[Rfam]
RNA sequence: CAGUUUCGCAGGGACGAACCUCCUCCCUCGUCCCAGCGAUCAGGCGGCUAGCGAACCUCCUCCCUCGCGACGUCGCCACCUCUGAGAAGCGCCCGCCGAUCUCCUCCCCGGCGGGCGCUUUUC
Numbered sequence: 001c002a003g004u005u006u007c008g009c010a011g012g013g014a015c016g017a018a019c020c021u022c023c024u025c026c027c028u029c030g031u032c033c034c035a036g037c038g039a040u041c042a043g044g045c046g047g048c049u050a051g052c053g054a055a056c057c058u059c060c061u062c063c064c065u066c067g068c069g070a071c072g073u074c075g076c077c078a079c080c081u082c083u084g085a086g087a088a089g090c091g092c093c094c095g096c097c098g099a100u101c102u103c104c105u106c107c108c109c110g111g112c113g114g115g116c117g118c119u120u121u122u123c
Base pairs, nucleotide, nucleotide: 007038008037009036011034012033013032014031015030016029017028043077044076045075046074047073048072049070051068052067089118090117091116092115093114094113095112096111097110098109
RNA: Alphaproteobacterial ar14